Annotation
The record is a 107-nucleotide RNA from Mytilus edulis, which matches "Vault RNA" in Rfam. About the family: This family of RNAs are found as part of the enigmatic vault ribonucleoprotein complex. The organism belongs to Mytilus, within Eukaryota. A reference for the family is Stadler et al. (2009), "Evolution of Vault RNAs", Mol Biol Evol. Rfam classes the family as a non-coding RNA gene.

RNA sequence: GUGUUGGCGUAGUCGAGUGGUUACUUCGAAACUUAUGUUUAAAUCAGUAAUUUAACGCAUCGCGGGAUCGCAUCCCGUAGAAACCACUGACGCUUUCCAGCAUUUUU
Number, nucleotide and partner (000 for none) at each position: 001g000002u102003g101004u100005u099006g098007g097008c000009g000010u000011a000012g091013u090014c089015g088016a000017g087018u086019g085020g084021u000022u000023a000024c000025u072026u000027c070028g069029a068030a000031a000032c000033u000034u000035a000036u000037g000038u000039u000040u000041a000042a000043a000044u000045c000046a000047g000048u000049a000050a000051u000052u000053u000054a000055a000056c000057g000058c000059a000060u000061c000062g000063c000064g000065g000066g000067a000068u029069c028070g027071c000072a025073u000074c000075c000076c000077g000078u000079a000080g000081a000082a000083a000084c020085c019086a018087c017088u015089g014090a013091c012092g000093c000094u000095u000096u000097c007098c006099a005100g004101c003102a002103u000104u000105u000106u000107u000